[Rfam]
RNA sequence: AUACCUUUCUCGGCAUUUUGCCUAAGAUCAAGUGUAAUAUAUGUUAUUAUCAGUUUAAUAUAUGAUAUAUGGUCAAUUGGGCCACACGAUAUUAAACUACUUUUUUAACGGGAAGGAGUCACUGCAAUAAUUUGCUACUGAGCUUCUCAUGUGUCGCCUAAGCGUUGCACUACUGCAUAGGUUGACGCACCUCAC
Numbered sequence: 001a002u003a004c005c006u007u008u009c010u011c012g013g014c015a016u017u018u019u020g021c022c023u024a025a026g027a028u029c030a031a032g033u034g035u036a037a038u039a040u041a042u043g044u045u046a047u048u049a050u051c052a053g054u055u056u057a058a059u060a061u062a063u064g065a066u067a068u069a070u071g072g073u074c075a076a077u078u079g080g081g082c083c084a085c086a087c088g089a090u091a092u093u094a095a096a097c098u099a100c101u102u103u104u105u106u107a108a109c110g111g112g113a114a115g116g117a118g119u120c121a122c123u124g125c126a127a128u129a130a131u132u133u134g135c136u137a138c139u140g141a142g143c144u145u146c147u148c149a150u151g152u153g154u155c156g157c158c159u160a161a162g163c164g165u166u167g168c169a170c171u172a173c174u175g176c177a178u179a180g181g182u183u184g185a186c187g188c189a190c191c192u193c194a195c
Stems, first nucleotide, its partner, number of pairs: 008027003012023002048067005070084005114147006128137002151188006158180003162176002